[Rfam]
RNA sequence: CUGAAGUGAUGAACUUGUUUAUCCAUUCGCUGAGUGCUGCCGGGCCCUGGCAUUGCAGCCUCCUGUGUCUGUUCUUGACUCAGGGGGUACAGCGGCCUGACUCUAUGCUUUUGUCCCCAGUGUUCUAUUGGGGGUAACUGUUGGGGCAGGUGUGCUGAUGCGUGUGUCAAGGGCCCGGUCACAACUAAGACGAGCGUAAACUCCUGAUCAC
Numbered sequence: 001c002u003g004a005a006g007u008g009a010u011g012a013a014c015u016u017g018u019u020u021a022u023c024c025a026u027u028c029g030c031u032g033a034g035u036g037c038u039g040c041c042g043g044g045c046c047c048u049g050g051c052a053u054u055g056c057a058g059c060c061u062c063c064u065g066u067g068u069c070u071g072u073u074c075u076u077g078a079c080u081c082a083g084g085g086g087g088u089a090c091a092g093c094g095g096c097c098u099g100a101c102u103c104u105a106u107g108c109u110u111u112u113g114u115c116c117c118c119a120g121u122g123u124u125c126u127a128u129u130g131g132g133g134g135u136a137a138c139u140g141u142u143g144g145g146g147c148a149g150g151u152g153u154g155c156u157g158a159u160g161c162g163u164g165u166g167u168c169a170a171g172g173g174c175c176c177g178g179u180c181a182c183a184a185c186u187a188a189g190a191c192g193a194g195c196g197u198a199a200a201c202u203c204c205u206g207a208u209c210a211c
Base pairs, nucleotide, nucleotide: 010210011209012208014206017203020200024196026194027193028192029191030189031188034185035184038181039180040178041177042176043175044174045173046172047171048169049168050167051166052165055161056160058088059087060086061085062084063083064082065081067079068078069077093157094156095155096154098152106143107141111137112136113135114134115133116132117131118130119129120128121127122126
RNA: Small nucleolar RNA SNORD17
Organism: Oncorhynchus kisutch